[Rfam]
The family of this 84-nucleotide RNA from Triticum urartu is "Small nucleolar RNA J33". It scores 76 bits against the family's covariance model. NCBI's taxonomy places the organism under Eukaryota, Streptophytina, Tracheophyta, Pooideae, Triticum. The literature on the family includes a 2003 paper in Nucleic Acids Res by Chen et al., "The high diversity of snoRNAs in plants: identification and comparative study of 120 snoRNA genes from Oryza sativa".
RNA sequence: CCGUGAGGGGGAUGAUGUAUUACUAUGAAGCUCUCGAGAUGCUGACUUUUCUUGAAUCCGCAUCUGAAGAGGAAUUGGUUGCUG
Number, nucleotide and partner (000 for none) at each position: 001c084002c000003g082004u081005g080006a079007g000008g000009g000010g000011g000012a000013u000014g000015a000016u000017g000018u000019a000020u000021u000022a000023c000024u000025a000026u000027g000028a000029a000030g000031c000032u000033c000034u000035c000036g000037a000038g000039a000040u000041g000042c000043u000044g000045a000046c000047u000048u000049u000050u000051c000052u000053u000054g000055a000056a000057u000058c000059c000060g000061c000062a000063u000064c000065u000066g000067a000068a000069g000070a000071g000072g000073a000074a000075u000076u000077g000078g000079u006080u005081g004082c003083u000084g001